Annotation
This 178-nucleotide RNA from Cuneatibacter caecimuris belongs to the Rfam family "glmS glucosamine-6-phosphate activated ribozyme aptamer". The family's consensus secondary structure is taken from published work. It is annotated as a riboswitch. The organism belongs to Cuneatibacter, within Bacteria.
RNA sequence: ACUUCAUAUUCAGCGCCAUGCACCUGUCUGAUCGUGAAACGGGCUGAAAUCCGUAGGCAGGUUAACGAGGUGAAAGGUGAUCGAAAUAUUCGGCGGAUGCCUUUCCGUACAGCCUUGGUACGUUAUGCGGGGACAAAUAUGCGGGUAACUGCAAAACAAAUCCUCUGCAACAAGGCCU
Numbered sequence: 001a002c003u004u005c006a007u008a009u010u011c012a013g014c015g016c017c018a019u020g021c022a023c024c025u026g027u028c029u030g031a032u033c034g035u036g037a038a039a040c041g042g043g044c045u046g047a048a049a050u051c052c053g054u055a056g057g058c059a060g061g062u063u064a065a066c067g068a069g070g071u072g073a074a075a076g077g078u079g080a081u082c083g084a085a086a087u088a089u090u091c092g093g094c095g096g097a098u099g100c101c102u103u104u105c106c107g108u109a110c111a112g113c114c115u116u117g118g119u120a121c122g123u124u125a126u127g128c129g130g131g132g133a134c135a136a137a138u139a140u141g142c143g144g145g146u147a148a149c150u151g152c153a154a155a156a157c158a159a160a161u162c163c164u165c166u167g168c169a170a171c172a173a174g175g176c177c178u
Base pairs, nucleotide, nucleotide: 022062023061024060025059026058027057028056030054072105073104074103075102076101081093082092083091084090106122107121108120109119110118127168128167129166130165131164132163140153141152142151143150144149